The family of this 155-nucleotide RNA from Pelotomaculum schinkii is "c-di-AMP riboswitch aptamer (ydaO/yuaA leader)".
This family represents a conserved RNA structure found upstream of the ydaO and yuaA genes in Bacillus subtilis and related genes in other bacteria. The ydaO/yuaA element is thought to act as a genetic 'off' switch for the ydaO and yuaA genes in its native state. It is believed that the element may be triggered during osmotic shock leading to activation of ydaO, a predicted amino acid transporter gene, and members of the yuaA-yubG operon which code for KtrA and KtrB K+ transporters.
The match comes from Rfam's covariance-model search (95 bits).
The source organism's lineage runs through Bacteria, Bacillati, Bacillota, Desulfotomaculaceae and Pelotomaculum.
[Rfam]
RNA sequence: AUUCUAUCAGCGCCGAGUCUUCCCAAAAGGAAGAGCGGGGGAACCAAUUUUUGGGGUUAAUCUGUUUGAGACGUGUACAUUUCACAUCUCAAAUGGUAGGGCUACCCUUAGUCCGCAUCCGUCAGCUAACCUCGUAGGCGUACAAGGGAAGAAUU
Numbered sequence: 001a002u003u004c005u006a007u008c009a010g011c012g013c014c015g016a017g018u019c020u021u022c023c024c025a026a027a028a029g030g031a032a033g034a035g036c037g038g039g040g041g042a043a044c045c046a047a048u049u050u051u052u053g054g055g056g057u058u059a060a061u062c063u064g065u066u067u068g069a070g071a072c073g074u075g076u077a078c079a080u081u082u083c084a085c086a087u088c089u090c091a092a093a094u095g096g097u098a099g100g101g102c103u104a105c106c107c108u109u110a111g112u113c114c115g116c117a118u119c120c121g122u123c124a125g126c127u128a129a130c131c132u133c134g135u136a137g138g139c140g141u142a143c144a145a146g147g148g149a150a151g152a153a154u155u
Stems, first nucleotide, its partner, number of pairs: 011140004018034006035135006045053002054120003062096010099114004